[Rfam]
RNA sequence: GUGCGGCCUGAAAAACAGUGCAGUGCCCUUGUAACUCAUCAUAAUAAUUUACGGCGCAGCCAAGAUUUCCCUGGUGUUGGCGCAGUAUUCGCGCACCCCGGUCUAGCC
Dot-bracket structure: ...................((.(((((.........................))))).))............(((....((((.......)))))))...........
Numbered sequence: 001g002u003g004c005g006g007c008c009u010g011a012a013a014a015a016c017a018g019u020g021c022a023g024u025g026c027c028c029u030u031g032u033a034a035c036u037c038a039u040c041a042u043a044a045u046a047a048u049u050u051a052c053g054g055c056g057c058a059g060c061c062a063a064g065a066u067u068u069c070c071c072u073g074g075u076g077u078u079g080g081c082g083c084a085g086u087a088u089u090c091g092c093g094c095a096c097c098c099c100g101g102u103c104u105a106g107c108c
Stems, first nucleotide, its partner, number of pairs: 020060002023057005073097003080094004
ArcZ RNA: a 108-nucleotide RNA sequence from Escherichia coli.
By type it is a small RNA.
The family's consensus secondary structure was predicted with PFOLD.
NCBI's taxonomy places the organism under Bacteria, Pseudomonadota, Enterobacteriaceae, Escherichia coli, Escherichia coli O157:H7.
It is one of the family's seed sequences.
Rfam's curators write: This RNA was discovered in E. coli during a large scale screen. SraH expression is highly abundant in stationary phase, but low levels could be detected in exponentially growing cells as well. ArcZ RNA function as an activator of the alternative sigma factor RpoS as a response of stress.